Record summary
Group II catalytic intron D1-D4-2: a 119-nucleotide sequence from Burkholderia pseudomallei. About the family: Group II introns are found in rRNA, tRNA and mRNA of organelles in fungi, plants and protists, and also in mRNA in bacteria. Lineage of the source: Bacteria > Betaproteobacteria > Burkholderiales > Burkholderia > Burkholderia pseudomallei. The sequence is in the family's curated seed alignment.
RNA sequence: GAGGGAGGGCCCCUCGGGGCCGGCGAUCAGGAGCCGGUCUCAAACCGCCACAAGCUGCUGUCGUAAAGAGCGAUGGUGGUGAGCGUUGUGGGAACGGCGGAACUUUGAUUCCGUCAGGU
Numbered sequence: 001g002a003g004g005g006a007g008g009g010c011c012c013c014u015c016g017g018g019g020c021c022g023g024c025g026a027u028c029a030g031g032a033g034c035c036g037g038u039c040u041c042a043a044a045c046c047g048c049c050a051c052a053a054g055c056u057g058c059u060g061u062c063g064u065a066a067a068g069a070g071c072g073a074u075g076g077u078g079g080u081g082a083g084c085g086u087u088g089u090g091g092g093a094a095c096g097g098c099g100g101a102a103c104u105u106u107g108a109u110u111c112c113g114u115c116a117g118g119u
Base pairs, nucleotide, nucleotide: 001015002014003013004012005011016041017040018039019038020037021036023034024033046118048091049090050089051088052087053086054080055079057077058076059075061073062072063071064070096115097114098113099112100111101110